Rfam assigns this 143-nucleotide sequence from Nonomuraea polychroma to the family "c-di-AMP riboswitch aptamer (ydaO/yuaA leader)". A reference for the family is Barrick et al. (2004), "New RNA motifs suggest an expanded scope for riboswitches in bacterial genetic control", Proc Natl Acad Sci U S A.
[Rfam]
RNA sequence: GGCGUCCGGCCGCCUAAUCCGCGCCUCGCGGAGCCGGGGACCCAACCUUUGGGGUGAAUCGCACGCCAGCCCAGGCUGCGUGCGUAGGGCACUUCCACGCCCGAACCCGUCAGCUAACCCGGUAGGCGGUAUGGAAGCAAGGA
Numbered sequence: 001g002g003c004g005u006c007c008g009g010c011c012g013c014c015u016a017a018u019c020c021g022c023g024c025c026u027c028g029c030g031g032a033g034c035c036g037g038g039g040a041c042c043c044a045a046c047c048u049u050u051g052g053g054g055u056g057a058a059u060c061g062c063a064c065g066c067c068a069g070c071c072c073a074g075g076c077u078g079c080g081u082g083c084g085u086a087g088g089g090c091a092c093u094u095c096c097a098c099g100c101c102c103g104a105a106c107c108c109g110u111c112a113g114c115u116a117a118c119c120c121g122g123u124a125g126g127c128g129g130u131a132u133g134g135a136a137g138c139a140a141g142g143a
Stems, first nucleotide, its partner, number of pairs: 011128004018032005033123006043051002052108003060084007087102004